[Rfam]
Nucleotides: 108
Stems, first nucleotide, its partner, number of pairs: 012025004042091005052081003056075003
Number, partner (000 for none) and nucleotide at each position: 001000g002000a003000a004000u005000g006000a007000a008000g009000g010000u011000a012025g013024c014023a015022u016000g017000g018000u019000a020000g021000u022015g023014u024013g025012c026000a027000c028000g029000g030000a031000u032000a033000u034000c035000a036000a037000a038000u039000u040000a041000c042091g043090g044089g045088u046087c047000a048000a049000c050000a051000u052081g053080u054079c055000u056075g057074c058073u059000c060000u061000c062000u063000c064000u065000g066000a067000u068000g069000c070000u071000u072000u073058g074057g075056c076000u077000c078000u079054g080053a081052u082000u083000a084000g085000a086000g087046g088045g089044c090043c091042u092000g093000g094000u095000u096000a097000c098000g099000a100000c101000c102000c103000a104000a105000a106000u107000u108000u

Shown here is a 108-nucleotide RNA from Trema andersonii, a member of the family "Small nucleolar RNA snoR100".
The match comes from Rfam's covariance-model search (103 bits).
The family's consensus secondary structure was predicted with WAR.